Shown here is a 66-nucleotide RNA from Streptantibioticus cattleyicolor, a member of the family "Actino-pnp RNA".
RNA sequence: GCCGGUCCUCGGUAGUGGCCUCCGGGAUGACGCAUCGCGCCCCGGCGGCUUCGAUCGAAGACCGGU
Dot-bracket structure: (((((((.(((((...((((.(((((.((........)).))))).))))...))))).)))))))
Numbered sequence: 001g002c003c004g005g006u007c008c009u010c011g012g013u014a015g016u017g018g019c020c021u022c023c024g025g026g027a028u029g030a031c032g033c034a035u036c037g038c039g040c041c042c043c044g045g046c047g048g049c050u051u052c053g054a055u056c057g058a059a060g061a062c063c064g065g066u
Stems, first nucleotide, its partner, number of pairs: 001066007009058005017050004022045005028039002

It scores 66 bits against the family's covariance model. By type it is a cis-regulatory element.